[Rfam]
Nucleotides: 104
Base pairs, nucleotide, nucleotide: 007059008058009057010056011055012054015049016048020046021045022043023040024039025038026037027036028035061076062075063074064073065072066071079099081102085097086096087095
Number, partner (000 for none) and nucleotide at each position: 001000u002000u003000u004000a005000g006000a007059g008058u009057u010056u011055u012054a013000u014000a015049g016048g017000g018000u019000u020046c021045c022043g023040u024039a025038a026037u027036u028035a029000u030000u031000u032000a033000c034000u035028u036027a037026a038025u039024u040023a041000g042000u043022c044000u045021g046020g047000u048016c049015c050000a051000a052000g053000a054012u055011a056010a057009a058008g059007c060000c061076c062075a063074c064073a065072g066071u067000u068000u069000u070000u071066a072065c073064u074063g075062u076061g077000u078000a079099c080000a081102c082000g083000g084000a085097a086096g087095g088000a089000c090000a091000a092000a093000a094000g095087c096086c097085u098000g099079g100000g101000a102081g103000a104000u
Record summary:
This 104-nucleotide sequence from Clostridium frigidicarnis belongs to the Rfam family "Guanidine-I riboswitch aptamer". Rfam 15.1 lists 1,509 matches to the family in 1,281 species. The source organism's lineage runs through Bacteria, Clostridia, Eubacteriales, Clostridiaceae and Clostridium.